This 76-nucleotide RNA from Alligator mississippiensis belongs to the Rfam family "Mammalian CPEB3 ribozyme".
Gene Ontology term of the family: RNA nuclease activity.

[Rfam]
RNA sequence: CUUGCAAGUUAUCGGCCAUAGCAGAAGCGCUCACGCUGCAGGCCUGUCAGAUUCUAACAAAUCUGUGAAUUCUGCU
Numbered sequence: 001c002u003u004g005c006a007a008g009u010u011a012u013c014g015g016c017c018a019u020a021g022c023a024g025a026a027g028c029g030c031u032c033a034c035g036c037u038g039c040a041g042g043c044c045u046g047u048c049a050g051a052u053u054c055u056a057a058c059a060a061a062u063c064u065g066u067g068a069a070u071u072c073u074g075c076u
Stems, first nucleotide, its partner, number of pairs: 014044002016041001020076007027039003048065006